About this RNA
This 114-nucleotide RNA from Amycolatopsis sacchari belongs to the Rfam family "TPP riboswitch aptamer (THI element)". Pairs were carried over by alignment from the consensus structure, which is taken from published work. From the family's description: Vitamin B(1) in its active form thiamin pyrophosphate (TPP) is an essential coenzyme that is synthesised by coupling of pyrimidine and thiazole moieties in bacteria.

RNA sequence: CACGGUUGCCACGGGAGUCCGGGACCAGACCGGGCUGAGAGGCGGGUGCGAACCCGCGACCGUCCGAACUUGAUUCCGGAUAACGCCGGCGCAAGGAGGCCUGAUCCCCUCCUG
Numbered sequence: 001c002a003c004g005g006u007u008g009c010c011a012c013g014g015g016a017g018u019c020c021g022g023g024a025c026c027a028g029a030c031c032g033g034g035c036u037g038a039g040a041g042g043c044g045g046g047u048g049c050g051a052a053c054c055c056g057c058g059a060c061c062g063u064c065c066g067a068a069c070u071u072g073a074u075u076c077c078g079g080a081u082a083a084c085g086c087c088g089g090c091g092c093a094a095g096g097a098g099g100c101c102u103g104a105u106c107c108c109c110u111c112c113u114g
Stems, first nucleotide, its partner, number of pairs: 008100003011063004017035005042057005069095004076089004